Notes
Rfam assigns this 91-nucleotide RNA from SAR202 cluster bacterium AD-804-J14_MRT_500m to the family "Selenocysteine transfer RNA". Lineage of the source: Bacteria > Bacillati > Chloroflexota > Dehalococcoidia > SAR202 cluster. Rfam links the family to the GO term triplet codon-amino acid adaptor activity. Clan: tRNA clan. The match comes from Rfam's covariance-model search (72 bits).
RNA sequence: GGGAGUGGAUAGGGCCCGGUGGCUCUCACGGACUUCAAAUCCGCUGUAUCUCGCAAAACGGGGUAGGAGGGUUCGACUCCCUUGCACUCCC
Numbered sequence: 001g002g003g004a005g006u007g008g009a010u011a012g013g014g015c016c017c018g019g020u021g022g023c024u025c026u027c028a029c030g031g032a033c034u035u036c037a038a039a040u041c042c043g044c045u046g047u048a049u050c051u052c053g054c055a056a057a058a059c060g061g062g063g064u065a066g067g068a069g070g071g072u073u074c075g076a077c078u079c080c081c082u083u084g085c086a087c088u089c090c091c
Stems, first nucleotide, its partner, number of pairs: 001091007009083001011026006029043004047065005068082004